[Rfam]
RNA sequence: ACACGUGGCGGGUGGAAGGCUCCGCUGUGUCUAACCCUAAUCGGAGGUAUUGAUGGUACUGUCGCCGCGCUCCCUCCGCCCGCUGUUUACUCGCUGACUUUCAGCGGGCUAGGGGAGCCGCCCCAGGGGGCGCCGCGGGGGGGAGGGGGUGGGGCGGACGCGGGAGAAAGGACCGAAAGGGGCUCCACGGCAAACAAAAAAAAAAAAACGUCAGCGAGGGGUCCUCUCGCCCCCAUCCGCCCUGGGGUCCUCGCCCGCAGGCCGCGGUCGGCCGGCACCCGCCAUUGCCGCCGCGAAGAGUUCGCCUCUGUCAGCCUCGGCGGGGCCCGGGAGAUGCGGAGCGCGGCCCCGCGCCCCCAGCAGAGCAACACGGGAGCGGCGCCCCCGGGGCAACCCCCGCGCCCCCCUGCGCCGUGGGGCGCGCGGACGGCGUCGCUCCCACACGC
Numbered sequence: 001a002c003a004c005g006u007g008g009c010g011g012g013u014g015g016a017a018g019g020c021u022c023c024g025c026u027g028u029g030u031c032u033a034a035c036c037c038u039a040a041u042c043g044g045a046g047g048u049a050u051u052g053a054u055g056g057u058a059c060u061g062u063c064g065c066c067g068c069g070c071u072c073c074c075u076c077c078g079c080c081c082g083c084u085g086u087u088u089a090c091u092c093g094c095u096g097a098c099u100u101u102c103a104g105c106g107g108g109c110u111a112g113g114g115g116a117g118c119c120g121c122c123c124c125a126g127g128g129g130g131c132g133c134c135g136c137g138g139g140g141g142g143g144a145g146g147g148g149g150u151g152g153g154g155c156g157g158a159c160g161c162g163g164g165a166g167a168a169a170g171g172a173c174c175g176a177a178a179g180g181g182g183c184u185c186c187a188c189g190g191c192a193a194a195c196a197a198a199a200a201a202a203a204a205a206a207a208a209c210g211u212c213a214g215c216g217a218g219g220g221g222u223c224c225u226c227u228c229g230c231c232c233c234c235a236u237c238c239g240c241c242c243u244g245g246g247g248u249c250c251u252c253g254c255c256c257g258c259a260g261g262c263c264g265c266g267g268u269c270g271g272c273c274g275g276c277a278c279c280c281g282c283c284a285u286u287g288c289c290g291c292c293g294c295g296a297a298g299a300g301u302u303c304g305c306c307u308c309u310g311u312c313a314g315c316c317u318c319g320g321c322g323g324g325g326c327c328c329g330g331g332a333g334a335u336g337c338g339g340a341g342c343g344c345g346g347c348c349c350c351g352c353g354c355c356c357c358c359a360g361c362a363g364a365g366c367a368a369c370a371c372g373g374g375a376g377c378g379g380c381g382c383c384c385c386c387g388g389g390g391c392a393a394c395c396c397c398c399g400c401g402c403c404c405c406c407c408u409g410c411g412c413c414g415u416g417g418g419g420c421g422c423g424c425g426g427a428c429g430g431c432g433u434c435g436c437u438c439c440c441a442c443a444c445g446c
Base pairs, nucleotide, nucleotide: 005236006235007234008233010232011231012230013229014228015227018223019222020221021220022219069118070117071116072115073114078109079108080107081106082105083104084103085102093215094214095213096212097211098210099208100207101206242360243359244358245357246356247355250331251330252329253328254324255323256322257321258320263295264294265293266292267291269290270289271288272287274283275282276281297309298308299307300306374438375437376436377435378434379433380432381431382430383429397426398425399424400423401422404419405418406417407416
Dot-bracket structure: ....((((.((((((..(((((..............................................(((((....((((((((.......[[[[[[[[[))))))))....))))).......................................................................................]]].]]]]]]...)))))...)))))))))).....((((((..(((((((((....(((((.((((.(((....)))...))))))))).((((.....))))..........)))))...)))).......................)))))).............((((((((((.............(((((..((((........))))..)))))..))))))))))........

About this RNA:
Rfam assigns this 446-nucleotide sequence to the family "Vertebrate telomerase RNA". The literature on the family includes a 2000 paper in Cell by Chen et al., "Secondary structure of vertebrate telomerase RNA". Telomerase is a ribonucleoprotein reverse transcriptase that synthesises telomeric DNA. Telomerase RNAs differ greatly in sequence and structure between vertebrates, ciliates and yeasts, but they share a 5' pseudoknot structure close to the template sequence. Vertebrate telomerase RNAs have a 3' H/ACA snoRNA-like domain. Rfam 15.1 lists 523 matches to the family in 477 species. Rfam's curators put it in the seed alignment. By type it is a non-coding RNA gene. Clan: Telomerase clan. Its family is annotated with telomerase catalytic core complex, telomere maintenance via telomerase and telomerase activity in the Gene Ontology.